[Rfam]
RNA sequence: ACUGCUUUUCUUUGAAAUCCCCAAAUUGUGGAGCCCGUUAGUCGAAUGACUAGCGGGUUUUUUUAU
Numbered sequence: 001a002c003u004g005c006u007u008u009u010c011u012u013u014g015a016a017a018u019c020c021c022c023a024a025a026u027u028g029u030g031g032a033g034c035c036c037g038u039u040a041g042u043c044g045a046a047u048g049a050c051u052a053g054c055g056g057g058u059u060u061u062u063u064u065a066u
Base pairs, nucleotide, nucleotide: 032059033058034057035056036055037054038053039052040051041050042049043048
RybB RNA: a 66-nucleotide RNA sequence from Winslowiella iniecta. Rfam describes the family as follows. This ncRNA was identified in a large scale screen of E. coli. The source organism's lineage runs through Bacteria, Gammaproteobacteria, Enterobacterales, Erwiniaceae and Winslowiella. On this family, see Wassarman et al., Genes Dev 2001: "Identification of novel small RNAs using comparative genomics and microarrays".